[Rfam]
RNA sequence: UCCACACCCAUGUGUGUAGGACCCCAAAGGAUCACCAUUAAAUUUGGCACAUAGCUCUAGAAAAGUUAUUACAUAGGUGUGAAACUUGACUUUUUUGGAGAUUUGUGCCAAAUUUAAUAGUGAUCCUUUGGAGUCCUACACACAUGGGUGAGGG
Numbered sequence: 001u002c003c004a005c006a007c008c009c010a011u012g013u014g015u016g017u018a019g020g021a022c023c024c025c026a027a028a029g030g031a032u033c034a035c036c037a038u039u040a041a042a043u044u045u046g047g048c049a050c051a052u053a054g055c056u057c058u059a060g061a062a063a064a065g066u067u068a069u070u071a072c073a074u075a076g077g078u079g080u081g082a083a084a085c086u087u088g089a090c091u092u093u094u095u096u097g098g099a100g101a102u103u104u105g106u107g108c109c110a111a112a113u114u115u116a117a118u119a120g121u122g123a124u125c126c127u128u129u130g131g132a133g134u135c136c137u138a139c140a141c142a143c144a145u146g147g148g149u150g151a152g153g154g
Base pairs, nucleotide, nucleotide: 002153003152005150006149007148008147009146010145011144012143013142015140016139017138018137019136020135021134022133024131025130026129027128028127030125031124032123034121035120037118038117039116040115041114042113043112044111045110046109047108048107049106050105051104053102055100056099057098058097059096060095061094062093063092064091065090066089067088068087069082070081071080072079073078
The family of this 154-nucleotide RNA sequence from Amborella trichopoda is "MIR8565 microRNA precursor family".
Rfam links the family to the GO terms RISC complex and miRNA-mediated post-transcriptional gene silencing.